[Rfam]
RNA: CyaR/Rye RNA
Organism: Affinibrenneria salicis
RNA sequence: AAAAUAGAUAAUGAAAAAUAAGCGUAGUAAUACUACCAGGAACCACCUCCUUAGCCAGCUCAAUCUCCCUUGAGCUGGCUUUUUC
Numbered sequence: 001a002a003a004a005u006a007g008a009u010a011a012u013g014a015a016a017a018a019u020a021a022g023c024g025u026a027g028u029a030a031u032a033c034u035a036c037c038a039g040g041a042a043c044c045a046c047c048u049c050c051u052u053a054g055c056c057a058g059c060u061c062a063a064u065c066u067c068c069c070u071u072g073a074g075c076u077g078g079c080u081u082u083u084u085c
Stems, first nucleotide, its partner, number of pairs: 038051004053080011